[Rfam]
RNA sequence: AGCCUCAUUCUAGAUGAAAUUGAGCACGGUUUGUGGUGUCCACAGACGGUUAAUGUAGCUAUGUUGAGAAACAGGUUAUGCUUCCAUCAUUGCAGAGGUGACAAUGAGACCUGUAACAUUU
Numbered sequence: 001a002g003c004c005u006c007a008u009u010c011u012a013g014a015u016g017a018a019a020u021u022g023a024g025c026a027c028g029g030u031u032u033g034u035g036g037u038g039u040c041c042a043c044a045g046a047c048g049g050u051u052a053a054u055g056u057a058g059c060u061a062u063g064u065u066g067a068g069a070a071a072c073a074g075g076u077u078a079u080g081c082u083u084c085c086a087u088c089a090u091u092g093c094a095g096a097g098g099u100g101a102c103a104a105u106g107a108g109a110c111c112u113g114u115a116a117c118a119u120u121u
Stems, first nucleotide, its partner, number of pairs: 002059002006055003021042002024039004071114005085100004
Source information: Rfam assigns this 121-nucleotide sequence from Enhydra lutris to the family "Small nucleolar RNA SNORA1". The family's consensus secondary structure was predicted with PFOLD. Rfam links the family to the GO terms RNA processing and nucleolus. Rfam classes the family as an H/ACA-box small nucleolar RNA. Rfam describes the family as follows. ACA1 is a member of the H/ACA class of snoRNA that guide the sites of modification of uridines to pseudouridines. A search with the family's covariance model found it, with a score of 105 bits.